[Rfam]
RNA sequence: CCUGCACACAAACCCAAAGGUCAUUACUUCGACACGUGUGAUGACCUACGCUACACGUGCGCAAAGAAACGGAGGCCUUGUCGCCUUUUACCGGCUCCAUGUGCCAGUAGAAGUGAAUUCAAGGUCCGACAUUC
Number, nucleotide and partner (000 for none) at each position: 001c000002c000003u061004g060005c059006a058007c057008a000009c000010a000011a000012a000013c000014c000015c000016a000017a000018a000019g046020g045021u044022c043023a042024u041025u040026a039027c038028u000029u000030c000031g000032a000033c000034a000035c000036g000037u000038g027039u026040g025041a024042u023043g022044a021045c020046c019047u000048a000049c000050g000051c000052u000053a000054c000055a000056c000057g007058u006059g005060c004061g003062c000063a000064a000065a000066g000067a000068a000069a000070c000071g000072g127073a000074g126075g125076c124077c123078u122079u121080g000081u000082c000083g000084c000085c113086u112087u111088u110089u109090a108091c107092c000093g105094g104095c103096u000097c000098c000099a000100u000101g000102u000103g095104c094105c093106a000107g091108u090109a089110g088111a087112a086113g085114u000115g000116a000117a000118u000119u000120c000121a079122a078123g077124g076125u075126c074127c072128g000129a000130c000131a000132u000133u000134c000
This 134-nucleotide sequence from Clarias magur belongs to the Rfam family "Small nucleolar RNA SNORA68". The family's consensus secondary structure was predicted with PFOLD. Lineage of the source: Eukaryota > Opisthokonta > Neopterygii > Clariidae > Clarias. By type it is an H/ACA-box small nucleolar RNA. Rfam links the family to the GO terms nucleolus and RNA processing. The literature on the family includes a 1997 paper in Genes Dev by Ganot et al., "The family of box ACA small nucleolar RNAs is defined by an evolutionarily conserved secondary structure and ubiquitous sequence elements essential for RNA accumulation".